[Rfam]
RNA sequence: UAAAAGCACUGGGGGAGCCGGAGGAGUCCGGCUGAGAGUGGGCCUUUUUCGGCCCUGACCCUUAUACCUGAUCCGGGUUAUGCCGGCGGAGGGAAGUGCGGGAUUUUAUGC
Numbered sequence: 001u002a003a004a005a006g007c008a009c010u011g012g013g014g015g016a017g018c019c020g021g022a023g024g025a026g027u028c029c030g031g032c033u034g035a036g037a038g039u040g041g042g043c044c045u046u047u048u049u050c051g052g053c054c055c056u057g058a059c060c061c062u063u064a065u066a067c068c069u070g071a072u073c074c075g076g077g078u079u080a081u082g083c084c085g086g087c088g089g090a091g092g093g094a095a096g097u098g099c100g101g102g103a104u105u106u107u108a109u110g111c
Stems, first nucleotide, its partner, number of pairs: 006099005011062004016056001017032005040054002043051001067092003073086004
Dot-bracket structure: .....(((((((((.((((((......))))).......((.(.......).)).)..))))....(((...((((......))))...)))..)))))............
RNA: TPP riboswitch aptamer (THI element)
Organism: Bacillus infantis